[Rfam]
RNA sequence: UACUGUUUAUGAUGAUUAUUCUAAAACAAUGGGAAUCUCUCUGAAAAAGGAUGAGGGAAACUUUUUGAACUGAAAUGGUA
Numbered sequence: 001u002a003c004u005g006u007u008u009a010u011g012a013u014g015a016u017u018a019u020u021c022u023a024a025a026a027c028a029a030u031g032g033g034a035a036u037c038u039c040u041c042u043g044a045a046a047a048a049g050g051a052u053g054a055g056g057g058a059a060a061c062u063u064u065u066u067g068a069a070c071u072g073a074a075a076u077g078g079u080a
Stems, first nucleotide, its partner, number of pairs: 001080007
Rfam assigns this 80-nucleotide RNA sequence from Megalops atlanticus to the family "Small nucleolar RNA SNORD79".
snoRNA U79 or Z22 is found in intron 7 of the gas5 gene in humans and is also present in mice.
On this family, see Galardi et al., Mol Cell Biol 2002: "Purified box C/D snoRNPs are able to reproduce site-specific 2'-O-methylation of target RNA in vitro".
The family is grouped with related families in Rfam's "SNORD74 clan".
Its family is annotated with nucleolus and RNA processing in the Gene Ontology.